Rfam assigns this 115-nucleotide sequence from Amaricoccus sp. HAR-UPW-R2A-40 to the family "ALIL pseudoknot". The match comes from Rfam's covariance-model search (72 bits). NCBI's taxonomy places the organism under Bacteria, Pseudomonadota, Alphaproteobacteria, Paracoccaceae, Amaricoccus. Rfam 15.1 lists 2,146 matches to the family in 1,098 species.

RNA sequence: CGCGUAUUUUGCGGCGGCGGCGCUCGACCGCCGGUUCAGGCCAUGAUCGCCUUCAUCGGCGAUCAUCGGUCUACGGGGUCGAGCCGAUCUGUCGGGAGUCGCCGUUCGCGUUCCU
Dot-bracket structure: ...............(((((.......)))))..........................................((((......((..(.((.(....).)).)..)))..))).